[Rfam]
RNA sequence: AGAGGUCAAGGUCAUAGCAGAAGUGCUCAUGGUGUGGCCAUGCCAGAUUCGAACAAAUUUGUGAAUACUGCU
Number, nucleotide and partner (000 for none) at each position: 001a000002g000003a000004g000005g000006u000007c000008a000009a000010g039011g038012u037013c036014a000015u000016a072017g071018c070019a069020g068021a000022a066023g035024u034025g033026c000027u000028c000029a000030u000031g000032g000033u025034g024035u023036g013037g012038c011039c010040a000041u000042g000043c000044c061045a060046g059047a058048u057049u056050c000051g000052a000053a000054c000055a000056a049057a048058u047059u046060u045061g044062u000063g000064a000065a000066u022067a000068c020069u019070g018071c017072u016

Shown here is a 72-nucleotide sequence from Alligator sinensis, a member of the family "Mammalian CPEB3 ribozyme".
The organism belongs to Alligator, within Eukaryota.
The family's consensus secondary structure is taken from published work.
Its family is annotated with RNA nuclease activity in the Gene Ontology.